[Rfam]
RNA sequence: CGGAGGACUGAGAAGGUUUAUCAGCUUCAACGUGUGCUGUUAUAACUGGUUAUAUUAUAACCUCCCACAGCAACACAAGACCGACACAACAACUGUCUCUGAGACCCAUCAGCACUAACAUUGUGUCUGUGUACAGAAU
Numbered sequence: 001c002g003g004a005g006g007a008c009u010g011a012g013a014a015g016g017u018u019u020a021u022c023a024g025c026u027u028c029a030a031c032g033u034g035u036g037c038u039g040u041u042a043u044a045a046c047u048g049g050u051u052a053u054a055u056u057a058u059a060a061c062c063u064c065c066c067a068c069a070g071c072a073a074c075a076c077a078a079g080a081c082c083g084a085c086a087c088a089a090c091a092a093c094u095g096u097c098u099c100u101g102a103g104a105c106c107c108a109u110c111a112g113c114a115c116u117a118a119c120a121u122u123g124u125g126u127c128u129g130u131g132u133a134c135a136g137a138a139u
Base pairs, nucleotide, nucleotide: 002065003064004063005062006061015047016046017045018044019042020041022039023038024037025036085131086130087129091126094123095122101115105112
This 139-nucleotide RNA from Salvelinus namaycush belongs to the Rfam family "Small nucleolar RNA SNORA47". The family's RNA type in Rfam is H/ACA-box small nucleolar RNA. Lineage of the source: Eukaryota > Opisthokonta > Deuterostomia > Neopterygii > Salvelinus. The literature on the family includes a 2001 paper in EMBO J by Huttenhofer et al., "RNomics: an experimental approach that identifies 201 candidates for novel, small, non-messenger RNAs in mouse". The family's consensus secondary structure was predicted with WAR. A search with the family's covariance model found it, with a score of 49 bits.